[Rfam]
The family of this 76-nucleotide sequence from Crocodylus porosus is "Mammalian CPEB3 ribozyme". The family has 14 seed sequences and 5,706 matches in Rfam 15.1. The mammalian CPEB3 ribozyme is a self cleaving RNA located in the second intron of the CPEB3 gene which belongs to a family of genes regulating messenger RNA polyadenylation. A search with the family's covariance model found it, with a score of 37 bits. The family's consensus secondary structure is taken from published work. NCBI's taxonomy places the organism under Eukaryota, Deuterostomia, Teleostomi, Sauropsida, Crocodylus.
RNA sequence: GGUUGCAAAUUCAAGGCCAAAACAGAAGAACGGAUGGUGCAGCCUGUCAGAUUCCAAUGAAUUUGCAAAUUCUGCU
Numbered sequence: 001g002g003u004u005g006c007a008a009a010u011u012c013a014a015g016g017c018c019a020a021a022a023c024a025g026a027a028g029a030a031c032g033g034a035u036g037g038u039g040c041a042g043c044c045u046g047u048c049a050g051a052u053u054c055c056a057a058u059g060a061a062u063u064u065g066c067a068a069a070u071u072c073u074g075c076u
Base pairs, nucleotide, nucleotide: 015044016043017042021076023074024073025072026071027070028040030038048065049064050063051062052061053060054059